[Rfam]
RNA sequence: UCCUCGCUCAAAGAAUCGCAUUCGAAGCACACAAACAGAAAUAUCUUCAUUGAUGUUUCAAUUCAUAUCUAUGCUUUGGGAGAAAGUCCCCGGACAUCCUUCUUUCUAAAAGUUAGGAUUGCGGAAACGCGCCGCCAUAGAAGCACUUGCGGCUUCUCUUCUACCAAUUCUUUACCUUCGAUUUCAUACAUCCUUCUGCCGUUUGUACUAUUACUUGGACGCUUCUUGCCCAUCGAAUCCAAAACUUGGGAGACCACAUGGAUGAAGAUAUGAGUCCGAGCUUCCUUGCGAUGUUUUCAACCGACUUGAAGAAGAUGAGUAGUGGGAGGCAUAAUGUAUGUGCUUGAUUGAGGUGGGAGUGCUAAUGGUGGACGAGGCUUUUUCGUCGAGAUCGAUAGUUAUGCGAUUGCCUUCCUUUGCUUUUCAAGCUGGGGAGGUAACUCGAUGGGGCUUAUUCUUGAUGCGAGA
Numbered sequence: 001u002c003c004u005c006g007c008u009c010a011a012a013g014a015a016u017c018g019c020a021u022u023c024g025a026a027g028c029a030c031a032c033a034a035a036c037a038g039a040a041a042u043a044u045c046u047u048c049a050u051u052g053a054u055g056u057u058u059c060a061a062u063u064c065a066u067a068u069c070u071a072u073g074c075u076u077u078g079g080g081a082g083a084a085a086g087u088c089c090c091c092g093g094a095c096a097u098c099c100u101u102c103u104u105u106c107u108a109a110a111a112g113u114u115a116g117g118a119u120u121g122c123g124g125a126a127a128c129g130c131g132c133c134g135c136c137a138u139a140g141a142a143g144c145a146c147u148u149g150c151g152g153c154u155u156c157u158c159u160u161c162u163a164c165c166a167a168u169u170c171u172u173u174a175c176c177u178u179c180g181a182u183u184u185c186a187u188a189c190a191u192c193c194u195u196c197u198g199c200c201g202u203u204u205g206u207a208c209u210a211u212u213a214c215u216u217g218g219a220c221g222c223u224u225c226u227u228g229c230c231c232a233u234c235g236a237a238u239c240c241a242a243a244a245c246u247u248g249g250g251a252g253a254c255c256a257c258a259u260g261g262a263u264g265a266a267g268a269u270a271u272g273a274g275u276c277c278g279a280g281c282u283u284c285c286u287u288g289c290g291a292u293g294u295u296u297u298c299a300a301c302c303g304a305c306u307u308g309a310a311g312a313a314g315a316u317g318a319g320u321a322g323u324g325g326g327a328g329g330c331a332u333a334a335u336g337u338a339u340g341u342g343c344u345u346g347a348u349u350g351a352g353g354u355g356g357g358a359g360u361g362c363u364a365a366u367g368g369u370g371g372a373c374g375a376g377g378c379u380u381u382u383u384c385g386u387c388g389a390g391a392u393c394g395a396u397a398g399u400u401a402u403g404c405g406a407u408u409g410c411c412u413u414c415c416u417u418u419g420c421u422u423u424u425c426a427a428g429c430u431g432g433g434g435a436g437g438u439a440a441c442u443c444g445a446u447g448g449g450g451c452u453u454a455u456u457c458u459u460g461a462u463g464c465g466a467g468a
Stems, first nucleotide, its partner, number of pairs: 003467005008461004014408006022080001023078006038059007084453003088450004120131004279363003286359002289356001295353004307347001309345002330340004410437006

The family of this 468-nucleotide RNA from Monilinia laxa is "RNase MRP". The organism belongs to Monilinia, within Eukaryota. Rfam describes the family as follows. RNase MRP is an enzymatically active ribonucleoprotein with two distinct roles in eukaryotes. In mitochondria it plays a direct role in the initiation of mitochondrial DNA replication. In the nucleus it is involved in precursor rRNA processing, where it cleaves the internal transcribed spacer 1 between 18S and 5.8S rRNAs. Despite distinct functions, RNase MRP has been shown to be evolutionarily related to RNase P. Like eukaryotic RNase P, RNase MRP is not catalytically active without associated protein subunits. The family's consensus secondary structure is taken from published work. A search with the family's covariance model found it, with a score of 110 bits.